Shown here is a 106-nucleotide RNA sequence from Cricetulus griseus, a member of the family "mir-2968 microRNA precursor family". The base pairs follow the family's consensus structure, which is taken from published work. The literature on the family includes a 2011 paper in BMC Genomics by Gunaratne et al., "Song exposure regulates known and novel microRNAs in the zebra finch auditory forebrain".
RNA sequence: GCUGCCUUGGGAAACAUUAUCCUCCAGGUCGCUCUGGCAGCCCUCGUCAUUGAGCGAGUUCUGCUUGGUGACCUUGGGAGACAGCAGCUUGACCAGGUCAGUGAGC
Numbered sequence: 001g002c003u004g005c006c007u008u009g010g011g012a013a014a015c016a017u018u019a020u021c022c023u024c025c026a027g028g029u030c031g032c033u034c035u036g037g038c039a040g041c042c043c044u045c046g047u048c049a050u051u052g053a054g055c056g057a058g059u060u061c062u063g064c065u066u067g068g069u070g071a072c073c074u075u076g077g078g079a080g081a082c083a084g085c086a087g088c089u090u091g092a093c094c095a096g097g098u099c100a101g102u103g104a105g106c
Stems, first nucleotide, its partner, number of pairs: 001106003006097004011090002017084002020081002022078003026074008036065005043058005